[Rfam]
RNA sequence: UUUGGAAGACUAAGAAGGCUGAGUCUGAUGAAGCAAGACCCUGCUGAUACAAUCCUCCUAGAGAAAAGGGUUUGAGAGAACAGCUCUUACCUGGAGAAUAGGCAUGCACAUUUUACAACAUCACAUUA
Numbered sequence: 001u002u003u004g005g006a007a008g009a010c011u012a013a014g015a016a017g018g019c020u021g022a023g024u025c026u027g028a029u030g031a032a033g034c035a036a037g038a039c040c041c042u043g044c045u046g047a048u049a050c051a052a053u054c055c056u057c058c059u060a061g062a063g064a065a066a067a068g069g070g071u072u073u074g075a076g077a078g079a080a081c082a083g084c085u086c087u088u089a090c091c092u093g094g095a096g097a098a099u100a101g102g103c104a105u106g107c108a109c110a111u112u113u114u115a116c117a118a119c120a121u122c123a124c125a126u127u128a
Stems, first nucleotide, its partner, number of pairs: 002061002004058003008054002017045003021041001023039004068121001070119002079112002083107002091101003
RNA: Small Cajal body specific RNA 4